[Rfam]
RNA: T-box leader
RNA sequence: UGUACGGCUAUGAAGAGAAUGAGUAACGGGAAGUCGGCUUGCCCAGAGAGCUCCGGUUGGUGAGAAGGAGUGAAGCAGUUCCCCGUGAAUAUGGUCUCUGAGCUGCGCACCGAACCCUGAAUGGGCAUUAGGCUGCGCCGGGAACCUGCACCCGUUAUCGUGCUAGAGUAUAACCGCUUGCUGCGGCGUACUCGAAGAGGUAUAUGCCGUGAGGCAUUUAUGAAACUGGGUGGUACCACGUGAGUGAUAACAGACUCUCGUCCCUUUU
Numbered sequence: 001u002g003u004a005c006g007g008c009u010a011u012g013a014a015g016a017g018a019a020u021g022a023g024u025a026a027c028g029g030g031a032a033g034u035c036g037g038c039u040u041g042c043c044c045a046g047a048g049a050g051c052u053c054c055g056g057u058u059g060g061u062g063a064g065a066a067g068g069a070g071u072g073a074a075g076c077a078g079u080u081c082c083c084c085g086u087g088a089a090u091a092u093g094g095u096c097u098c099u100g101a102g103c104u105g106c107g108c109a110c111c112g113a114a115c116c117c118u119g120a121a122u123g124g125g126c127a128u129u130a131g132g133c134u135g136c137g138c139c140g141g142g143a144a145c146c147u148g149c150a151c152c153c154g155u156u157a158u159c160g161u162g163c164u165a166g167a168g169u170a171u172a173a174c175c176g177c178u179u180g181c182u183g184c185g186g187c188g189u190a191c192u193c194g195a196a197g198a199g200g201u202a203u204a205u206g207c208c209g210u211g212a213g214g215c216a217u218u219u220a221u222g223a224a225a226c227u228g229g230g231u232g233g234u235a236c237c238a239c240g241u242g243a244g245u246g247a248u249a250a251c252a253g254a255c256u257c258u259c260g261u262c263c264c265u266u267u268u
Stems, first nucleotide, its partner, number of pairs: 007103002015098004026086005039074002050071005106137004110132002139154003200221003204217003228264003238261003242257004